The family of this 155-nucleotide RNA sequence from Paenibacillus lutrae is "FMN riboswitch aptamer (RFN element)".
The organism belongs to Paenibacillus, within Bacteria.
A search with the family's covariance model found it, with a score of 111 bits.
RNA sequence: AUGAACCUUCGGGGUUGGGUGAAAUUCCCUACCGGCGGUGAGGAUGCCCAUGUGUACAUGGGUGUCUAAGCCCGCGACUCCCGGCUUGUAUAGGCCGGGACUGAUCUGGUGAGAUUCCAGGGCCGACGGUAAAGUCCGGAUGGGAGAAGGUGAAG
Numbered sequence: 001a002u003g004a005a006c007c008u009u010c011g012g013g014g015u016u017g018g019g020u021g022a023a024a025u026u027c028c029c030u031a032c033c034g035g036c037g038g039u040g041a042g043g044a045u046g047c048c049c050a051u052g053u054g055u056a057c058a059u060g061g062g063u064g065u066c067u068a069a070g071c072c073c074g075c076g077a078c079u080c081c082c083g084g085c086u087u088g089u090a091u092a093g094g095c096c097g098g099g100a101c102u103g104a105u106c107u108g109g110u111g112a113g114a115u116u117c118c119a120g121g122g123c124c125g126a127c128g129g130u131a132a133a134g135u136c137c138g139g140a141u142g143g144g145a146g147a148a149g150g151u152g153a154a155g
Base pairs, nucleotide, nucleotide: 005151006150007149008148009147010146017029018028019027031135032134033125034124035075036074037073038072070123071122079100080099105121106120107119108118109117127138128137129136
Pairs were carried over by alignment from the consensus structure, which is taken from published work.